The family of this 78-nucleotide RNA from Schistosoma japonicum is "mir-3492 microRNA precursor family". Rfam links the family to the GO terms miRNA-mediated post-transcriptional gene silencing and RISC complex. A search with the family's covariance model found it, with a score of 52 bits. The family has 2 seed sequences and 21,496 matches in Rfam 15.1.
[Rfam]
RNA sequence: AUAUUUCUGAAUCUGGGUUGAGAUUUCGUCAGAUACCAACCCACCAGGGAUGAUGAGACUUUUAAGAUAAGUGAAACG
Number, nucleotide and partner (000 for none) at each position: 001a000002u000003a000004u075005u074006u073007c000008u071009g000010a000011a068012u067013c066014u000015g000016g063017g062018u000019u000020g061021a060022g059023a000024u058025u057026u056027c055028g054029u053030c052031a000032g000033a000034u000035a000036c000037c000038a000039a000040c000041c000042c000043a000044c000045c000046a000047g000048g000049g000050a000051u000052g030053a029054u028055g027056a026057g025058a024059c022060u021061u020062u017063u016064a000065a000066g013067a012068u011069a000070a000071g008072u000073g006074a005075a004076a000077c000078g000